[Rfam]
RNA sequence: CCCGCGACAGGACGGAAAGACCCCGUGGAGCUUUACUGCAACUUGACAUUGGAUUUCGGUGCUACAUGUACAGCAUAGGUGGGAGACUUAGAAGCUGGGACGCCAGUCUCAGUGGAGUCAUCGUUGGGAUACCACUCUUGUAGUACUGAAGUUCUAACCAUAGACUGUGAAUCCAGUCUUGGGACACUGUCAGGUGGGCAGUUUGACUGGGGCGGUCGCCUCCCAAAAAGUAACGGAGGCGCCCAAAGGUUCCCUCAGCACGGUCGGAAAUCGUGCGUAGAGUGUAAAGGCAAAAGGGAGCUUGAUUGCGAGACAUACAGGUCGAGCAAGGACGAAAGUCGGGCUUAGUGAUCCGGUGGUUCCGAGUGGAAGGGCCAUCGCUCAACGGAUAAAAGCUACCCCGGGGAUAACAGGCUUAUCUCCCCCAAGAGUCCACAUCGACGGGGAGGUUUGGCACCUCGAUGUCGGCUCAUCACAUCCUGGGGCUGUAGUAGGUCCCAAGGGUUGGGCUGUUCGCCCAUUAAAGUGGUACGCGAGCUGGGUUCAGAACGUCGUGAGACAGUUCGGUCCCUAUCCGUCGCGGGCGCA
Numbered sequence: 001c002c003c004g005c006g007a008c009a010g011g012a013c014g015g016a017a018a019g020a021c022c023c024c025g026u027g028g029a030g031c032u033u034u035a036c037u038g039c040a041a042c043u044u045g046a047c048a049u050u051g052g053a054u055u056u057c058g059g060u061g062c063u064a065c066a067u068g069u070a071c072a073g074c075a076u077a078g079g080u081g082g083g084a085g086a087c088u089u090a091g092a093a094g095c096u097g098g099g100a101c102g103c104c105a106g107u108c109u110c111a112g113u114g115g116a117g118u119c120a121u122c123g124u125u126g127g128g129a130u131a132c133c134a135c136u137c138u139u140g141u142a143g144u145a146c147u148g149a150a151g152u153u154c155u156a157a158c159c160a161u162a163g164a165c166u167g168u169g170a171a172u173c174c175a176g177u178c179u180u181g182g183g184a185c186a187c188u189g190u191c192a193g194g195u196g197g198g199c200a201g202u203u204u205g206a207c208u209g210g211g212g213c214g215g216u217c218g219c220c221u222c223c224c225a226a227a228a229a230g231u232a233a234c235g236g237a238g239g240c241g242c243c244c245a246a247a248g249g250u251u252c253c254c255u256c257a258g259c260a261c262g263g264u265c266g267g268a269a270a271u272c273g274u275g276c277g278u279a280g281a282g283u284g285u286a287a288a289g290g291c292a293a294a295a296g297g298g299a300g301c302u303u304g305a306u307u308g309c310g311a312g313a314c315a316u317a318c319a320g321g322u323c324g325a326g327c328a329a330g331g332a333c334g335a336a337a338g339u340c341g342g343g344c345u346u347a348g349u350g351a352u353c354c355g356g357u358g359g360u361u362c363c364g365a366g367u368g369g370a371a372g373g374g375c376c377a378u379c380g381c382u383c384a385a386c387g388g389a390u391a392a393a394a395g396c397u398a399c400c401c402c403g404g405g406g407a408u409a410a411c412a413g414g415c416u417u418a419u420c421u422c423c424c425c426c427a428a429g430a431g432u433c434c435a436c437a438u439c440g441a442c443g444g445g446g447a448g449g450u451u452u453g454g455c456a457c458c459u460c461g462a463u464g465u466c467g468g469c470u471c472a473u474c475a476c477a478u479c480c481u482g483g484g485g486c487u488g489u490a491g492u493a494g495g496u497c498c499c500a501a502g503g504g505u506u507g508g509g510c511u512g513u514u515c516g517c518c519c520a521u522u523a524a525a526g527u528g529g530u531a532c533g534c535g536a537g538c539u540g541g542g543u544u545c546a547g548a549a550c551g552u553c554g555u556g557a558g559a560c561a562g563u564u565c566g567g568u569c570c571c572u573a574u575c576c577g578u579c580g581c582g583g584g585c586g587c588a
Stems, first nucleotide, its partner, number of pairs: 001584008010576003014571002022405004027401002029397005035202004042194007051154016068137001078136005085119003094113008158182003162179006205217004218240006241386001243343002249301006255281002258276006282291002306329004312323003331340003354380007362373002414455003418452001419449007429439002466541001467539004471533001472530005479504002482499006506520005547565004551560003

Bacterial large subunit ribosomal RNA: a 588-nucleotide part of an RNA from Alkaliphilus sp. B6464. The source organism's lineage runs through Bacteria, Bacillati, Bacillota, Clostridia and Alkaliphilus.